[Rfam]
RNA sequence: UUAAAGAUACUCCCGCAUUGGACGCCCUCAAAGCAUCGUACGGCGCACCCAUCAGCAUGGGCCGGGGUGAGAUUCCCGUGA
Numbered sequence: 001u002u003a004a005a006g007a008u009a010c011u012c013c014c015g016c017a018u019u020g021g022a023c024g025c026c027c028u029c030a031a032a033g034c035a036u037c038g039u040a041c042g043g044c045g046c047a048c049c050c051a052u053c054a055g056c057a058u059g060g061g062c063c064g065g066g067g068u069g070a071g072a073u074u075c076c077c078g079u080g081a
Stems, first nucleotide, its partner, number of pairs: 012078001013043003044064002048060002065077003
RNA: pemK RNA